The family of this 103-nucleotide RNA sequence from Megasphaera vaginalis is "SAM riboswitch aptamer (S box leader)".
On this family, see Grundy and Henkin, Mol Microbiol 1998: "The S box regulon: a new global transcription termination control system for methionine and cysteine biosynthesis genes in gram-positive bacteria".
A search with the family's covariance model found it, with a score of 78 bits.
Clan: SAM clan.
RNA sequence: UAUGCAUCUAGAGCAGCUGAGGGACUGGCCCGACGACGCUGCGGCAACCUUCCGGAAGGAAAGGUGCCAAUUCCAGCGCCACGGUGAUGGCGACAGAUGACAA
Numbered sequence: 001u002a003u004g005c006a007u008c009u010a011g012a013g014c015a016g017c018u019g020a021g022g023g024a025c026u027g028g029c030c031c032g033a034c035g036a037c038g039c040u041g042c043g044g045c046a047a048c049c050u051u052c053c054g055g056a057a058g059g060a061a062a063g064g065u066g067c068c069a070a071u072u073c074c075a076g077c078g079c080c081a082c083g084g085u086g087a088u089g090g091c092g093a094c095a096g097a098u099g100a101c102a103a
Base pairs, nucleotide, nucleotide: 001103005099006098007097008096013042014041015040016039017038021031022030023029025076026075027074028073043068044067045066046065048064049063050061051060052059053058072095077092078091079090080089081088